[Rfam]
RNA sequence: UGAUCAUGGAGCCGGGUUGCUUUUGAUGUCUGGAGCGACCUAGGGGUACAGGGAGUACUCCCGCGGUGCGGGCUGGAUCAGGUGUGCU
Numbered sequence: 001u002g003a004u005c006a007u008g009g010a011g012c013c014g015g016g017u018u019g020c021u022u023u024u025g026a027u028g029u030c031u032g033g034a035g036c037g038a039c040c041u042a043g044g045g046g047u048a049c050a051g052g053g054a055g056u057a058c059u060c061c062c063g064c065g066g067u068g069c070g071g072g073c074u075g076g077a078u079c080a081g082g083u084g085u086g087c088u
Stems, first nucleotide, its partner, number of pairs: 001080005010074004014041005020035004025030001043061007